This 132-nucleotide RNA sequence from Vombatus ursinus belongs to the Rfam family "Small nucleolar RNA SNORA17". The base pairs follow the family's consensus structure, which was predicted with RNAalifold. From the family's description: snoRNA ACA 17 belongs to the H/ACA family of snoRNAs and is predicted to guide pseudouridylation of the 28S rRNA at positions U4659 and U4598. NCBI's taxonomy places the organism under Eukaryota, Chordata, Theria, Diprotodontia, Vombatus. The family's RNA type in Rfam is H/ACA-box small nucleolar RNA. The family is grouped with related families in Rfam's "SNORA17 clan".
RNA sequence: AGUGUCCUUAAAGGCACGAUCUAAGUGGCACCUGUCAAUGAGAGGCAGCUAGGUGGCACAGUGGAUAGAGAGCUGGGCCUGGACUCAGAAUUUGGUCUUAGAAGUUGUGUGACUCUGAGCAAAUCACUUAAC
Numbered sequence: 001a002g003u004g005u006c007c008u009u010a011a012a013g014g015c016a017c018g019a020u021c022u023a024a025g026u027g028g029c030a031c032c033u034g035u036c037a038a039u040g041a042g043a044g045g046c047a048g049c050u051a052g053g054u055g056g057c058a059c060a061g062u063g064g065a066u067a068g069a070g071a072g073c074u075g076g077g078c079c080u081g082g083a084c085u086c087a088g089a090a091u092u093u094g095g096u097c098u099u100a101g102a103a104g105u106u107g108u109g110u111g112a113c114u115c116u117g118a119g120c121a122a123a124u125c126a127c128u129u130a131a132c
Base pairs, nucleotide, nucleotide: 002059003058004057005056006055007053008052009051010050014046015045020043021042022041024039026037027036028035029034068127070125071124074122076120081116082115083114085112086111087110089106090105091104092103093102
A search with the family's covariance model found it, with a score of 29 bits.